A member of the RNA family "U12 minor spliceosomal RNA" from Tetranychus urticae, 165 nucleotides long. NCBI's taxonomy places the organism under Eukaryota, Panarthropoda, Chelicerata, Tetranychoidea, Tetranychus.

[Rfam]
RNA sequence: GUGCCUGAAACUAAUGAGUAAGGAAUUUAUAAGACCUUAUUGACCUAGGGUCUUCAUAGACUGCCCUUCUAGGGUGUCUCGGCAUAAUUUUUGAAAGGGUUUAGGUCCAAUUAAAUGCGUGACUUGCCUACUUUAGUAAGUUGCCUUUAAUUGCUGACUUGCCCU
Dot-bracket structure: ...(((.(..........).)))........((((((((......))))))))((.........................)).............(((((..(((((....((.(.(((...(((((........))))).))).).))......))))))))))

It scores 82 bits against the family's covariance model.